Shown here is a 123-nucleotide RNA from Neomesorhizobium albiziae, a member of the family "TPP riboswitch aptamer (THI element)". Vitamin B(1) in its active form thiamin pyrophosphate (TPP) is an essential coenzyme that is synthesised by coupling of pyrimidine and thiazole moieties in bacteria.
[Rfam]
RNA sequence: AACGCUCUAACGGGGUGCCGGACGCUGCAAGGCGGGCCGGCUGAGAGGCAAACGGGGAAACCCGGCCAACCCGCUGAACCUGAUCCGGUUUGCACCGGCGGAGGGAUUAGACGCUCUGAACCG
Numbered sequence: 001a002a003c004g005c006u007c008u009a010a011c012g013g014g015g016u017g018c019c020g021g022a023c024g025c026u027g028c029a030a031g032g033c034g035g036g037c038c039g040g041c042u043g044a045g046a047g048g049c050a051a052a053c054g055g056g057g058a059a060a061c062c063c064g065g066c067c068a069a070c071c072c073g074c075u076g077a078a079c080c081u082g083a084u085c086c087g088g089u090u091u092g093c094a095c096c097g098g099c100g101g102a103g104g105g106a107u108u109a110g111a112c113g114c115u116c117u118g119a120a121c122c123g
Base pairs, nucleotide, nucleotide: 006111007110008109009108010107011073012072013071014070017041018040019039020038021037048066049065079104080103081102085098086097087096088095
Lineage of the source: Bacteria > Pseudomonadati > Alphaproteobacteria > Phyllobacteriaceae > Neomesorhizobium.